Rfam assigns this 77-nucleotide sequence from Prunus avium to the family "Small nucleolar RNA snoR53Y".
The base pairs follow the family's consensus structure, which was predicted with WAR.
Rfam classes the family as a C/D-box small nucleolar RNA.
RNA sequence: GUUCCCUGUGAUGCUUUUAAACCAUGCUAAUGCUGAUUAUUGCAUGAUUAUAUCUUUUACAAAAUUCUGAGGGAACU
Numbered sequence: 001g002u003u004c005c006c007u008g009u010g011a012u013g014c015u016u017u018u019a020a021a022c023c024a025u026g027c028u029a030a031u032g033c034u035g036a037u038u039a040u041u042g043c044a045u046g047a048u049u050a051u052a053u054c055u056u057u058u059a060c061a062a063a064a065u066u067c068u069g070a071g072g073g074a075a076c077u
Base pairs, nucleotide, nucleotide: 001076002075003074004073005072
It scores 73 bits against the family's covariance model.